The family of this 73-nucleotide RNA is "S15-Methanomicrobia ribosomal protein leader". On this family, see Eckert and Weinberg, BMC Microbiol 2020: "Discovery of 20 novel ribosomal leader candidates in bacteria and archaea". The sequence is in the family's curated seed alignment.
RNA sequence: AGCACUUGCAUGUGCUGGCUAUGGUAAGUCCGACGUGCUCCCGAAAGCACUGCCCUCUCGGGCUUGGGAUUAC
Numbered sequence: 001a002g003c004a005c006u007u008g009c010a011u012g013u014g015c016u017g018g019c020u021a022u023g024g025u026a027a028g029u030c031c032g033a034c035g036u037g038c039u040c041c042c043g044a045a046a047g048c049a050c051u052g053c054c055c056u057c058u059c060g061g062g063c064u065u066g067g068g069a070u071u072a073c
Stems, first nucleotide, its partner, number of pairs: 001016005024073004030068002035050005052063004